The record is a 302-nucleotide RNA sequence from Branchiostoma lanceolatum, which matches "Nuclear RNase P" in Rfam. Pairs were carried over by alignment from the consensus structure, which is taken from published work.
RNA sequence: UUUGUCAGGAAUGCUCGCUUUAGGGGUUACCUACAGGUAUGUAAUUACCUCCUUGCCCCUGGGAAGGUCUGAGACAAGGCUACUUAAGGCUCUAGCAGGGCCCUGGUGUAGUGCACAGGUGGGACACCAGAGAAAGGCUUGGCAGUGUGCAAAGAUGGCACAAGAGGCCCUCGACCAUUUGGGGAGGGCUGAUGCCUGCAUACGUGUCAUAGUUGGAAAAGACCCAUAGCCGGCAACUUUGAGUGCAAUUCGCGAGGCAGCAUACUGUGCUGUAACUCAAUUCAGACUACUCUCCUGACAAA
Numbered sequence: 001u002u003u004g005u006c007a008g009g010a011a012u013g014c015u016c017g018c019u020u021u022a023g024g025g026g027u028u029a030c031c032u033a034c035a036g037g038u039a040u041g042u043a044a045u046u047a048c049c050u051c052c053u054u055g056c057c058c059c060u061g062g063g064a065a066g067g068u069c070u071g072a073g074a075c076a077a078g079g080c081u082a083c084u085u086a087a088g089g090c091u092c093u094a095g096c097a098g099g100g101c102c103c104u105g106g107u108g109u110a111g112u113g114c115a116c117a118g119g120u121g122g123g124a125c126a127c128c129a130g131a132g133a134a135a136g137g138c139u140u141g142g143c144a145g146u147g148u149g150c151a152a153a154g155a156u157g158g159c160a161c162a163a164g165a166g167g168c169c170c171u172c173g174a175c176c177a178u179u180u181g182g183g184g185a186g187g188g189c190u191g192a193u194g195c196c197u198g199c200a201u202a203c204g205u206g207u208c209a210u211a212g213u214u215g216g217a218a219a220a221g222a223c224c225c226a227u228a229g230c231c232g233g234c235a236a237c238u239u240u241g242a243g244u245g246c247a248a249u250u251c252g253c254g255a256g257g258c259a260g261c262a263u264a265c266u267g268u269g270c271u272g273u274a275a276c277u278c279a280a281u282u283c284a285g286a287c288u289a290c291u292c293u294c295c296u297g298a299c300a301a302a
Stems, first nucleotide, its partner, number of pairs: 001302004008295003014256005022060005035050005069285005078231004088102005103118003107115002119227005125221001138212002257273006
Ribonuclease P (RNase P) is a ubiquitous endoribonuclease, found in archaea, bacteria and eukarya as well as chloroplasts and mitochondria. Its best characterised activity is the generation of mature 5'-ends of tRNAs by cleaving the 5'-leader elements of precursor-tRNAs. Cellular RNase Ps are ribonucleoproteins. RNA from bacterial RNase Ps retains its catalytic activity in the absence of the protein subunit, i.e. it is a ribozyme. Isolated eukaryotic and archaeal RNase P RNA has not been shown to retain its catalytic function, but is still essential for the catalytic activity of the holoenzyme. Although the archaeal and eukaryotic holoenzyme s have a much greater protein content than the bacterial ones, the RNA cores from all the three lineages are homologous -- helices corresponding to P1, P2, P3, P4, and P10/11 are common to all cellular RNase P RNAs. Yet, there is considerable sequence variation, particularly among the eukaryotic RNAs. The family's RNA type in Rfam is ribozyme.